[Rfam]
RNA sequence: UAAAUGUGGAGUCCAGUAACCACUGAAAUAAACGGGGCGAAAUCGAAAAGCCUAAAGAGUAGAAAACAA
Numbered sequence: 001u002a003a004a005u006g007u008g009g010a011g012u013c014c015a016g017u018a019a020c021c022a023c024u025g026a027a028a029u030a031a032a033c034g035g036g037g038c039g040a041a042a043u044c045g046a047a048a049a050g051c052c053u054a055a056a057g058a059g060u061a062g063a064a065a066a067c068a069a
Base pairs, nucleotide, nucleotide: 006023007022008021009020036052037051038050043063044062
Dot-bracket structure: .....((((..........))))............(((....[[.....))).........]]......
Record summary:
A member of the RNA family "DUF805 RNA" from Flavobacterium cellulosilyticum, 69 nucleotides long. The match comes from Rfam's covariance-model search (78 bits). The source organism's lineage runs through Bacteria, Pseudomonadati, Flavobacteriia, Flavobacteriales and Flavobacterium.